[Rfam]
RNA: Glycine riboswitch aptamer
Organism: Burkholderiales bacterium PBB1
RNA sequence: UUCCGCUUGCUAGGAGAGUGUUCGACAGUUCACCACUGUCGGGCCGCCGAAGGCGCACAGCGGGCUUGUAAAAGGCCGCUCCAACGCUCAGGCAAAAGGACUGGCAACACGCC
Numbered sequence: 001u002u003c004c005g006c007u008u009g010c011u012a013g014g015a016g017a018g019u020g021u022u023c024g025a026c027a028g029u030u031c032a033c034c035a036c037u038g039u040c041g042g043g044c045c046g047c048c049g050a051a052g053g054c055g056c057a058c059a060g061c062g063g064g065c066u067u068g069u070a071a072a073a074g075g076c077c078g079c080u081c082c083a084a085c086g087c088u089c090a091g092g093c094a095a096a097a098g099g100a101c102u103g104g105c106a107a108c109a110c111g112c113c
Stems, first nucleotide, its partner, number of pairs: 007107007020044010046093003049089002053087003059080005